[Rfam]
RNA sequence: CACCGAGUCCAUAGGUUCCGGGGCUCACCGGGGCCUGGUGCAAAAGGGA
Numbered sequence: 001c002a003c004c005g006a007g008u009c010c011a012u013a014g015g016u017u018c019c020g021g022g023g024c025u026c027a028c029c030g031g032g033g034c035c036u037g038g039u040g041c042a043a044a045a046g047g048g049a
Base pairs, nucleotide, nucleotide: 014035015034016033017032018031019030020029021028